A member of the RNA family "glmS glucosamine-6-phosphate activated ribozyme aptamer" from Clostridiales bacterium CHKCI006, 144 nucleotides long. On this family, see Winkler et al., Nature 2004: "Control of gene expression by a natural metabolite-responsive ribozyme". The family's RNA type in Rfam is riboswitch.
RNA sequence: AUUAACUAAUUAGCGCCAGGACUCAUUGAGUUGACGAGGACUGAAUCGAUCGAAAGACUCGGCGGAUGAUUCAGAGGUACCAUGCUACCUGAACCAUGAACAAAAACGACAAGCAAUUGUCCAACAAAUUCAUGCGGCAUGUUU
Numbered sequence: 001a002u003u004a005a006c007u008a009a010u011u012a013g014c015g016c017c018a019g020g021a022c023u024c025a026u027u028g029a030g031u032u033g034a035c036g037a038g039g040a041c042u043g044a045a046u047c048g049a050u051c052g053a054a055a056g057a058c059u060c061g062g063c064g065g066a067u068g069a070u071u072c073a074g075a076g077g078u079a080c081c082a083u084g085c086u087a088c089c090u091g092a093a094c095c096a097u098g099a100a101c102a103a104a105a106a107c108g109a110c111a112a113g114c115a116a117u118u119g120u121c122c123a124a125c126a127a128a129u130u131c132a133u134g135c136g137g138c139a140u141g142u143u144u
Stems, first nucleotide, its partner, number of pairs: 020032005041074005050062004075090005094136001095134004108121005
The source organism's lineage runs through Bacteria, Bacillati, Bacillota, Clostridia and Eubacteriales. It scores 70 bits against the family's covariance model. About the family: This entry contains a glucosamine-6-phosphate activated ribozyme that is found in the mRNA for GlmS. GlmS is an enzyme that uses fructose-6-phosphate and glutamine to generate glucosamine-6-phosphate. The ribozyme catalyses self cleavage of the glmS mRNA that is thought to regulate GlmS activity.